[Rfam]
RNA sequence: CGUGCGGUCAUUGGGGAGUAGCCGCCUUCCAUCGCGAGAAGGGUUUGCGUCAACAGACUUGUCCUGCCCCGUGCAGGACAUGGCGCAGGCAGUGUUCCACCUGGCGAGACCUUUGACCGUGCAACUUCGGAUAUGGCCGAAGGCGUUGCACGGUCAAUUGCGUCCUCGUCCUUCGGCCCAAGGAACCCC
Dot-bracket structure: .........................(.(...........)).((((((((((.......((((((((.....)))))))))))))))))).(.((((.....................................................................................)))).).

This 189-nucleotide sequence from Variovorax sp. CF079 belongs to the Rfam family "Manganese Mn2+ riboswitch aptamer (yybP-ykoY)".
The organism belongs to Variovorax, within Bacteria.